[Rfam]
RNA sequence: GACAUCAUGUGAUGAAAUUGGAUAAAUCUUAGGACACCUUCCUACACAGCAAAUAACUGCUGUGGAUGAGAAUGCAUUUUCCAUACUGAUGAUGUA
Numbered sequence: 001g002a003c004a005u006c007a008u009g010u011g012a013u014g015a016a017a018u019u020g021g022a023u024a025a026a027u028c029u030u031a032g033g034a035c036a037c038c039u040u041c042c043u044a045c046a047c048a049g050c051a052a053a054u055a056a057c058u059g060c061u062g063u064g065g066a067u068g069a070g071a072a073u074g075c076a077u078u079u080u081c082c083a084u085a086c087u088g089a090u091g092a093u094g095u096a
Base pairs, nucleotide, nucleotide: 002095003094004093005092006091007090042049043048

A member of the RNA family "Small nucleolar RNA snoR31/Z110/Z27" from Phaseolus vulgaris, 96 nucleotides long.
Its family is annotated with RNA processing and nucleolus in the Gene Ontology.
The family's RNA type in Rfam is C/D-box small nucleolar RNA.
Rfam describes the family as follows. This family contains several related snoRNAs including R31, Z27 and Z110.
The source organism's lineage runs through Eukaryota, Streptophytina, Euphyllophyta, Fabales and Phaseolus.